The record is a 117-nucleotide RNA sequence from Inhella inkyongensis, which matches "ALIL pseudoknot" in Rfam. NCBI's taxonomy places the organism under Bacteria, Pseudomonadota, Burkholderiales, Sphaerotilaceae, Inhella. Rfam links the family to the GO term positive regulation of translational frameshifting.

RNA sequence: CACGUUUUUUGCCCAGGCGGAGCUCGACCGCCGCAUCAAGUCUUGAGGGACUUCGUCGACCGGCAUCGCCACGCCCUGGGGGUCGAGUCGAUCUGCCGCACCCUGCAGAUUGCCCCA
Numbered sequence: 001c002a003c004g005u006u007u008u009u010u011g012c013c014c015a016g017g018c019g020g021a022g023c024u025c026g027a028c029c030g031c032c033g034c035a036u037c038a039a040g041u042c043u044u045g046a047g048g049g050a051c052u053u054c055g056u057c058g059a060c061c062g063g064c065a066u067c068g069c070c071a072c073g074c075c076c077u078g079g080g081g082g083u084c085g086a087g088u089c090g091a092u093c094u095g096c097c098g099c100a101c102c103c104u105g106c107a108g109a110u111u112g113c114c115c116c117a
Stems, first nucleotide, its partner, number of pairs: 016032005079116004089112002092109005098103001